This 463-nucleotide part of an RNA from Mixia osmundae belongs to the Rfam family "Eukaryotic large subunit ribosomal RNA".
[Rfam]
RNA sequence: GGAAGUAGCAAAUAUUCAAGUGAGAACCUUGAAGACUGAAGUGGGGAAGGGUUCCAUGGUAACUGCAGUUGGACAUGGGUCAGUCGGUCCUAAGAGAUAGGGAAACUCCGUUUCAAUGUCGUGUGCUUCGUUCACACCAAUCUCGAAAGGGAAUGGGGUUAAAAUUCCUCAACCGAGAGGCAGGCUGCUCUAGAACGGCAACGUCUCAAACGAACUCGGAGACGCCGGCGGGCGCGCCAGGAAGAGUUUUCUUUUCUCCUUUACAGAUUUUGCUCGAGCACCCUGGAAUCGGAUUAUCCGGAGAUAGGGUACCCACGAUCUGGUAGAGCCUCGCGACUCUUUUCGCGACGGUCUGGUUUUGCGCUCGACGGUCCUUGAAAAUCCGAGGGAUGUGAAUAUUUGCUUUGCACUCGCUCGUACCCAUAACCGCAUCAGGUCCCCAAGGUGAUCAGCCUCUAGUCCA
Numbered sequence: 001g002g003a004a005g006u007a008g009c010a011a012a013u014a015u016u017c018a019a020g021u022g023a024g025a026a027c028c029u030u031g032a033a034g035a036c037u038g039a040a041g042u043g044g045g046g047a048a049g050g051g052u053u054c055c056a057u058g059g060u061a062a063c064u065g066c067a068g069u070u071g072g073a074c075a076u077g078g079g080u081c082a083g084u085c086g087g088u089c090c091u092a093a094g095a096g097a098u099a100g101g102g103a104a105a106c107u108c109c110g111u112u113u114c115a116a117u118g119u120c121g122u123g124u125g126c127u128u129c130g131u132u133c134a135c136a137c138c139a140a141u142c143u144c145g146a147a148a149g150g151g152a153a154u155g156g157g158g159u160u161a162a163a164a165u166u167c168c169u170c171a172a173c174c175g176a177g178a179g180g181c182a183g184g185c186u187g188c189u190c191u192a193g194a195a196c197g198g199c200a201a202c203g204u205c206u207c208a209a210a211c212g213a214a215c216u217c218g219g220a221g222a223c224g225c226c227g228g229c230g231g232g233c234g235c236g237c238c239a240g241g242a243a244g245a246g247u248u249u250u251c252u253u254u255u256c257u258c259c260u261u262u263a264c265a266g267a268u269u270u271u272g273c274u275c276g277a278g279c280a281c282c283c284u285g286g287a288a289u290c291g292g293a294u295u296a297u298c299c300g301g302a303g304a305u306a307g308g309g310u311a312c313c314c315a316c317g318a319u320c321u322g323g324u325a326g327a328g329c330c331u332c333g334c335g336a337c338u339c340u341u342u343u344c345g346c347g348a349c350g351g352u353c354u355g356g357u358u359u360u361g362c363g364c365u366c367g368a369c370g371g372u373c374c375u376u377g378a379a380a381a382u383c384c385g386a387g388g389g390a391u392g393u394g395a396a397u398a399u400u401u402g403c404u405u406u407g408c409a410c411u412c413g414c415u416c417g418u419a420c421c422c423a424u425a426a427c428c429g430c431a432u433c434a435g436g437u438c439c440c441c442a443a444g445g446u447g448a449u450c451a452g453c454c455u456c457u458a459g460u461c462c463a
Base pairs, nucleotide, nucleotide: 015033016032017031018030019029020028034461035460036459037458043441044440045439046438049421050420054078055077056076057075058074063071085417086416087415089150090149094144095143096112097111098110100109101108102107121137122136123135154171155170156169157168158167174413175412176411177410180408181407182406183405184403185402195204196203197202215387216386217385218384219383220382224372225371226370227369229367230366231365232364233363234362235361237356238355239354240260241259243257244256245255264322265321266320267319268318280310281309282308283307284306285305289301290300291299292298329351330350331348332347333346334345335344427436428435443455444454445453446452

Record summary:
It is one of the family's seed sequences. A reference for the family is Yusupov et al. (2001), "Crystal structure of the ribosome at 5.5 A resolution", Science. NCBI's taxonomy places the organism under Eukaryota, Pucciniomycotina, Mixiomycetes, Mixiaceae, Mixia osmundae.